[Rfam]
Nucleotides: 095
Stems, first nucleotide, its partner, number of pairs: 001043005010031008066095005072087004
Number, partner (000 for none) and nucleotide at each position: 001043g002042g003041a004040u005039c006000g007000g008000g009000c010031g011030g012029c013028g014027g015026c016025c017024u018000g019000u020000g021000g022000g023000a024017g025016g026015g027014u028013c029012g030011c031010c032000a033000g034000g035000u036000a037000u038000g039005g040004a041003u042002c043001c044000c045000a046000g047000a048000c049000c050000c051000c052000c053000u054000g055000u056000u057000u058000c059000g060000u061000g062000a063000g064000g065000g066095c067094g068093u069092g070091c071000c072087g073086c074085c075084g076000g077000g078000g079000c080000c081000c082000g083000a084075c085074g086073g087072c088000a089000g090000a091070g092069c093068g094067c095066g
This 95-nucleotide RNA sequence belongs to the Rfam family "Rhodo-rpoB RNA".